[Rfam]
RNA: mir-92 microRNA precursor family
Organism: Muraenolepis orangiensis
RNA sequence: UCUCUGUCACAGGUGGGGUCGAGCAGCAAUGCUGCGUAGCGACAGUAUUGCACUUGUCCCGGCCUGUGAAGGAGCU
Numbered sequence: 001u002c003u004c005u006g007u008c009a010c011a012g013g014u015g016g017g018g019u020c021g022a023g024c025a026g027c028a029a030u031g032c033u034g035c036g037u038a039g040c041g042a043c044a045g046u047a048u049u050g051c052a053c054u055u056g057u058c059c060c061g062g063c064c065u066g067u068g069a070a071g072g073a074g075c076u
Stems, first nucleotide, its partner, number of pairs: 004072002009067006016060003020056001022054002026051009